The record is a 74-nucleotide sequence from Orthoflavivirus nilense, which matches "Flavivirus DB element" in Rfam. This family represents the flavivirus 3' UTR elements DB1 and DB2. It is annotated as a cis-regulatory element.
RNA sequence: ACGCGGCCCUAGCCCCGGUAAUGGCGUUAACCAGGGCGAAAGGACUAGAGGUUAGAGGAGACCCCGCGGUUUAA
Numbered sequence: 001a002c003g004c005g006g007c008c009c010u011a012g013c014c015c016c017g018g019u020a021a022u023g024g025c026g027u028u029a030a031c032c033a034g035g036g037c038g039a040a041a042g043g044a045c046u047a048g049a050g051g052u053u054a055g056a057g058g059a060g061a062c063c064c065c066g067c068g069g070u071u072u073a074a
Stems, first nucleotide, its partner, number of pairs: 002068005007043002013036003017032003050063004